[Rfam]
RNA sequence: GUUGUGAUUUGCCUACAAAUCAGUAUCUUUGUUCUGUGAGAAACAAC
Numbered sequence: 001g002u003u004g005u006g007a008u009u010u011g012c013c014u015a016c017a018a019a020u021c022a023g024u025a026u027c028u029u030u031g032u033u034c035u036g037u038g039a040g041a042a043a044c045a046a047c
Base pairs, nucleotide, nucleotide: 015032016031017030018029019028
Shown here is a 47-nucleotide sequence from Alloprevotella sp. OH1205_COT-284, a member of the family "CRISPR RNA direct repeat element". Its family is annotated with defense response in the Gene Ontology.